A member of the RNA family "Group II catalytic intron D1-D4-2" from Micromonospora sicca, 118 nucleotides long. The literature on the family includes a 2001 paper in EMBO J by Chu et al., "Control of branch-site choice by a group II intron". The pairing is the family consensus, mapped onto this sequence. Rfam 15.1 lists 1,231 matches to the family in 625 species. Gene Ontology term of the family: Group II intron splicing. It scores 96 bits against the family's covariance model.

[Rfam]
RNA sequence: GAAGGUUGGCCCUUCGGAGUCGCCCUGCGGGGGGAGGUUCCAAACCGCCACAUGCUGCGGAAGUGGUAACGCGACCGUGGUGAGCGAUGUGGAAAAGGCACUGAUUGAAGUGUCAGGU
Numbered sequence: 001g002a003a004g005g006u007u008g009g010c011c012c013u014u015c016g017g018a019g020u021c022g023c024c025c026u027g028c029g030g031g032g033g034g035a036g037g038u039u040c041c042a043a044a045c046c047g048c049c050a051c052a053u054g055c056u057g058c059g060g061a062a063g064u065g066g067u068a069a070c071g072c073g074a075c076c077g078u079g080g081u082g083a084g085c086g087a088u089g090u091g092g093a094a095a096a097g098g099c100a101c102u103g104a105u106u107g108a109a110g111u112g113u114c115a116g117g118u
Stems, first nucleotide, its partner, number of pairs: 001015005016041006023034004046117001048092006054081002057078003063072002097114006